Shown here is an 87-nucleotide RNA from Streptomyces avermitilis, a member of the family "Streptomyces RNA 3202". Rfam's curators write: Identified by deep sequencing of transcriptome at the end of exponential growth phase. Appears smaller on northern blot than sequencing transcript. This indicates processing step. Streptomyces specific. NCBI's taxonomy places the organism under Bacteria, Bacillati, Kitasatosporales, Streptomycetaceae, Streptomyces avermitilis. On this family, see Vockenhuber et al., RNA Biol 2011: "Deep sequencing-based identification of small non-coding RNAs in Streptomyces coelicolor". Pairs were carried over by alignment from the consensus structure. A search with the family's covariance model found it, with a score of 65 bits.
RNA sequence: CACAGUCCCGACGCACUCCCCCCGGCGCCGGGACUCUUCCCGAGCCGAGCUUCGGCGCCACCCCCCCCGGCGCCGAAGCUCGACUCU
Numbered sequence: 001c002a003c004a005g006u007c008c009c010g011a012c013g014c015a016c017u018c019c020c021c022c023c024g025g026c027g028c029c030g031g032g033a034c035u036c037u038u039c040c041c042g043a044g045c046c047g048a049g050c051u052u053c054g055g056c057g058c059c060a061c062c063c064c065c066c067c068c069g070g071c072g073c074c075g076a077a078g079c080u081c082g083a084c085u086c087u
Stems, first nucleotide, its partner, number of pairs: 005034006012027003042086003046082006053075007